[Rfam]
Nucleotides: 132
Stems, first nucleotide, its partner, number of pairs: 002058005017042002020039002070125003074122001092110007
Number, partner (000 for none) and nucleotide at each position: 001000c002058c003057c004056u005055c006054c007000u008000a009000c010000a011000a012000a013000g014000g015000c016000a017042u018041g019000u020039c021038u022000u023000c024000u025000g026000u027000u028000c029000g030000c031000u032000a033000u034000c035000u036000u037000u038021g039020g040000u041018c042017g043000c044000a045000c046000a047000a048000a049000a050000a051000a052000u053000u054006g055005g056004a057003g058002g059000c060000a061000a062000a063000g064000a065000a066000a067000u068000g069000a070125g071124g072123a073000u074122u075000u076000g077000g078000a079000g080000a081000c082000a083000u084000c085000u086000g087000g088000g089000g090000c091000c092110a093109g094108c095107u096106u097105g098104c099000u100000c101000c102000c103000c104098g105097c106096a107095g108094g109093c110092u111000c112000a113000a114000g115000a116000u117000u118000a119000a120000c121000u122074g123072u124071c125070c126000c127000a128000c129000a130000u131000a132000a
Notes:
The record is a 132-nucleotide sequence from Heterocephalus glaber, which matches "Small nucleolar RNA SNORA38" in Rfam. About the family: ACA38 is a member of the H/ACA class of snoRNA that guide the sites of modification of uridines to pseudouridines. The family has 25 seed sequences and 628 matches in Rfam 15.1. By type it is an H/ACA-box small nucleolar RNA. A search with the family's covariance model found it, with a score of 113 bits. The family's consensus secondary structure was predicted with RNAfold.